[Rfam]
Source information: The record is a 73-nucleotide RNA sequence from Porphyromonas endodontalis, which matches "Bacteroidetes FopS (family of paralogous sRNAs)" in Rfam.
RNA sequence: GUGUUUUUCAUGGUAUUAGAUUUUAAGGUUAAUACGAGUGAGUUUGUCGGGAGACAAGCUCACUUUCUUUUUA
Numbered sequence: 001g002u003g004u005u006u007u008u009c010a011u012g013g014u015a016u017u018a019g020a021u022u023u024u025a026a027g028g029u030u031a032a033u034a035c036g037a038g039u040g041a042g043u044u045u046g047u048c049g050g051g052a053g054a055c056a057a058g059c060u061c062a063c064u065u066u067c068u069u070u071u072u073a
Stems, first nucleotide, its partner, number of pairs: 042059007
It scores 68 bits against the family's covariance model. The family has 12 seed sequences and 822 matches in Rfam 15.1. About the family: The RNA-binding protein RbpB and BTncRNA_FopS sRNA are involved in the post-transcription regulation of polysaccharide utilisation loci (PUL). FopS sRNAs function as post-transcriptional repressors by binding to the vicinity of the start codon of the first mRNA of target PUL polycistrons, typically corresponding to the cognate SusC homolog, impeding translation of the respective glycan transporter. On this family, see Ruttiger et al., Nat Commun 2025: "The global RNA-binding protein RbpB is a regulator of polysaccharide utilization in Bacteroides thetaiotaomicron". Taxonomically the source falls in Porphyromonas endodontalis (Bacteria, Bacteroidia, Bacteroidales, Porphyromonadaceae).